Overview: The family of this 133-nucleotide RNA from Gluconobacter sp. DsW_058 is "TPP riboswitch aptamer (THI element)". The family's consensus secondary structure is taken from published work.
[Rfam]
RNA sequence: UUCUUCACCUUGGGGUGCCCUGACAAAGGGCUGAGAGACUGCUGAGGGUAUGCGCUUUAGAGCCAUACCAGCGCAGUGACCCAUAGAACCUGAUCCAGUUCAUGCUGGCGGAGGGAUGGUGGCUACUGACAGA
Numbered sequence: 001u002u003c004u005u006c007a008c009c010u011u012g013g014g015g016u017g018c019c020c021u022g023a024c025a026a027a028g029g030g031c032u033g034a035g036a037g038a039c040u041g042c043u044g045a046g047g048g049u050a051u052g053c054g055c056u057u058u059a060g061a062g063c064c065a066u067a068c069c070a071g072c073g074c075a076g077u078g079a080c081c082c083a084u085a086g087a088a089c090c091u092g093a094u095c096c097a098g099u100u101c102a103u104g105c106u107g108g109c110g111g112a113g114g115g116a117u118g119g120u121g122g123c124u125a126c127u128g129a130c131a132g133a
Stems, first nucleotide, its partner, number of pairs: 006121004011083004017031005038077005089114003095108004